mir-1000 microRNA precursor family: a 67-nucleotide RNA from Parnassius apollo.
Gene Ontology terms of the family: RISC complex, miRNA-mediated post-transcriptional gene silencing and negative regulation of glutamate secretion, neurotransmission.
Pairs were carried over by alignment from the consensus structure, which was predicted with RNAalifold.
Taxonomically the source falls in Parnassius (Eukaryota, Ecdysozoa, Dicondylia, Panorpida).
RNA sequence: CCCCGCCAUAUUGUCCUGUCACAGCAGUACGUUCUGGCUACUGCUGCGCCGGGACAAACCGGCGGGG
Numbered sequence: 001c002c003c004c005g006c007c008a009u010a011u012u013g014u015c016c017u018g019u020c021a022c023a024g025c026a027g028u029a030c031g032u033u034c035u036g037g038c039u040a041c042u043g044c045u046g047c048g049c050c051g052g053g054a055c056a057a058a059c060c061g062g063c064g065g066g067g
Base pairs, nucleotide, nucleotide: 003065004064005063006062012056013055014054015053016052017051018050022046023045024044025043026042027041028040029039